[Rfam]
RNA sequence: GCCGAUGAUGAUUUAAUCCGAUUGUUCGAGGUGUAGUGUAGCCGAGACCCUGAAAAGGGAGAACCCCUUGGUGAAGCUACAUUUCAUAUGACUUCAAUGGAUUUAACUGAGGU
Numbered sequence: 001g002c003c004g005a006u007g008a009u010g011a012u013u014u015a016a017u018c019c020g021a022u023u024g025u026u027c028g029a030g031g032u033g034u035a036g037u038g039u040a041g042c043c044g045a046g047a048c049c050c051u052g053a054a055a056a057g058g059g060a061g062a063a064c065c066c067c068u069u070g071g072u073g074a075a076g077c078u079a080c081a082u083u084u085c086a087u088a089u090g091a092c093u094u095c096a097a098u099g100g101a102u103u104u105a106a107c108u109g110a111g112g113u
Base pairs, nucleotide, nucleotide: 001113002112003111048059049058050057051056
RNA: Small nucleolar RNA Z278